[Rfam]
RNA: c-di-AMP riboswitch aptamer (ydaO/yuaA leader)
RNA sequence: ACGACGAACUCACUCACGCACGGCAGGAGCGGGGGACCCAGGUAAGUCGCCGGGCCGGCCACACGCCGGAACGGCUAGGGGUGAAGCCAUGCCCGCAGGGGCACGGCCGGGCACUCUCCCGCCCGAACCCGACAGCUCACCUCGCAGGCGUAGGAGAGGAACCCA
Numbered sequence: 001a002c003g004a005c006g007a008a009c010u011c012a013c014u015c016a017c018g019c020a021c022g023g024c025a026g027g028a029g030c031g032g033g034g035g036a037c038c039c040a041g042g043u044a045a046g047u048c049g050c051c052g053g054g055c056c057g058g059c060c061a062c063a064c065g066c067c068g069g070a071a072c073g074g075c076u077a078g079g080g081g082u083g084a085a086g087c088c089a090u091g092c093c094c095g096c097a098g099g100g101g102c103a104c105g106g107c108c109g110g111g112c113a114c115u116c117u118c119c120c121g122c123c124c125g126a127a128c129c130c131g132a133c134a135g136c137u138c139a140c141c142u143c144g145c146a147g148g149c150g151u152a153g154g155a156g157a158g159g160a161a162c163c164c165a
Stems, first nucleotide, its partner, number of pairs: 002150002005147001010027002029145006039078001079130003087106002090103003109124004